Overview:
Rfam assigns this 110-nucleotide RNA sequence from Capillibacterium thermochitinicola to the family "PyrR binding site". The literature on the family includes a 2001 paper in Nucleic Acids Res by Bonner et al., "Molecular recognition of pyr mRNA by the Bacillus subtilis attenuation regulatory protein PyrR". The base pairs follow the family's consensus structure, which is taken from published work. Taxonomically the source falls in Capillibacterium (Bacteria, Bacillati, Bacillota).
RNA sequence: AUUCCCUUUAAACUGGUCCCGUGAGGCCGGUAAGGAAUAAUUCUUAUGCUUUAGGAAUUGAAGGAUAAGAACAGAACCUUCCUGCCUUACGGUGGGAAGGUUUUUUUCGU
Dot-bracket structure: ..(.((((....((((((......)))))).)))).)...(((((((.(((((.....))))).))))))).(((((((((((((......)))))))))))))......